[Rfam]
RNA sequence: UUGACAGAAGAGAGUGAGCAUACACAGAUAAUUGUAUUAAAAAUUUUCUUACUUUUCUGUGUGUGCUCACUUCUCUUUCUGUCAG
Numbered sequence: 001u002u003g004a005c006a007g008a009a010g011a012g013a014g015u016g017a018g019c020a021u022a023c024a025c026a027g028a029u030a031a032u033u034g035u036a037u038u039a040a041a042a043a044u045u046u047u048c049u050u051a052c053u054u055u056u057c058u059g060u061g062u063g064u065g066c067u068c069a070c071u072u073c074u075c076u077u078u079c080u081g082u083c084a085g
Stems, first nucleotide, its partner, number of pairs: 001085009010075003013071009023061003
RNA: mir-156 microRNA precursor family
Organism: Capsicum baccatum